[Rfam]
RNA sequence: GGUCGAUGAUGAGCUGUAAAAGGUCUGAUUACCCACAAUCCUCUGCCCCCCCUCAGCUCCCAGCAGCCCCUGCUCUACCCAGCAUGCUCUAGUCAUGCAGCGCUGUUUUCAGGAACUGCUGACACACAGGAUGUGACAUCACAAUCUGAGUCAGUCAGAGAUUCUAUUGGCUCAGUAAGAUUGACAUCCCACAGAACCAAUUAGCAUGGAGUAAGGGGGCGGGGCAAGAGGACAGGGAGCUGAUCACAAGUUUUCAAGCUGAGACC
Numbered sequence: 001g002g003u004c005g006a007u008g009a010u011g012a013g014c015u016g017u018a019a020a021a022g023g024u025c026u027g028a029u030u031a032c033c034c035a036c037a038a039u040c041c042u043c044u045g046c047c048c049c050c051c052c053u054c055a056g057c058u059c060c061c062a063g064c065a066g067c068c069c070c071u072g073c074u075c076u077a078c079c080c081a082g083c084a085u086g087c088u089c090u091a092g093u094c095a096u097g098c099a100g101c102g103c104u105g106u107u108u109u110c111a112g113g114a115a116c117u118g119c120u121g122a123c124a125c126a127c128a129g130g131a132u133g134u135g136a137c138a139u140c141a142c143a144a145u146c147u148g149a150g151u152c153a154g155u156c157a158g159a160g161a162u163u164c165u166a167u168u169g170g171c172u173c174a175g176u177a178a179g180a181u182u183g184a185c186a187u188c189c190c191a192c193a194g195a196a197c198c199a200a201u202u203a204g205c206a207u208g209g210a211g212u213a214a215g216g217g218g219g220c221g222g223g224g225c226a227a228g229a230g231g232a233c234a235g236g237g238a239g240c241u242g243a244u245c246a247c248a249a250g251u252u253u254u255c256a257a258g259c260u261g262a263g264a265c266c
Stems, first nucleotide, its partner, number of pairs: 001266004038244003043222008057211004061121006080105004085100001087097001129189006147174009157165001
The family of this 266-nucleotide RNA from Merluccius polli is "Small Cajal body specific RNA 6". Its family is annotated with RNA processing and nucleolus in the Gene Ontology. The base pairs follow the family's consensus structure, which is taken from published work. Lineage of the source: Eukaryota > Vertebrata > Euteleosteomorpha > Neoteleostei > Merluccius. The family has 17 seed sequences and 1,309 matches in Rfam 15.1. U88 is small Cajal body specific RNA (scaRNA). scaRNAs are a novel class of small nuclear RNAs which localise to the Cajal bodies. U88 is found associated with both fibrillarin and Gar1p and co-localises with coilin in Cajal bodies. Rfam classes the family as a small Cajal body RNA.